This 180-nucleotide RNA sequence from Sphenodon punctatus belongs to the Rfam family "TUC338". On this family, see Braconi et al., Proc Natl Acad Sci U S A 2011: "Expression and functional role of a transcribed noncoding RNA with an ultraconserved element in hepatocellular carcinoma". By type it is a cis-regulatory element.
RNA sequence: UUGACAGUCCUGGAGACUGAAGUCCUCUAUUUAUCCACAGAACAGAUUCAGCACGGGCAGCGGCAGUGGCAAUGCCAGCUUCCCCAACACUGCCCCAACCUUGUGCCUCGACUUGGAAGAACCACCUCUAAAGGUGAGAGAGGUCAUUCAGUCUCCAUGUCCAUUCAAUCCUUGGCCAAC
Numbered sequence: 001u002u003g004a005c006a007g008u009c010c011u012g013g014a015g016a017c018u019g020a021a022g023u024c025c026u027c028u029a030u031u032u033a034u035c036c037a038c039a040g041a042a043c044a045g046a047u048u049c050a051g052c053a054c055g056g057g058c059a060g061c062g063g064c065a066g067u068g069g070c071a072a073u074g075c076c077a078g079c080u081u082c083c084c085c086a087a088c089a090c091u092g093c094c095c096c097a098a099c100c101u102u103g104u105g106c107c108u109c110g111a112c113u114u115g116g117a118a119g120a121a122c123c124a125c126c127u128c129u130a131a132a133g134g135u136g137a138g139a140g141a142g143g144u145c146a147u148u149c150a151g152u153c154u155c156c157a158u159g160u161c162c163a164u165u166c167a168a169u170c171c172u173u174g175g176c177c178a179a180c
Stems, first nucleotide, its partner, number of pairs: 002167003007161001011157011024143005030138006038110001042108001051106006062094007113131005119125001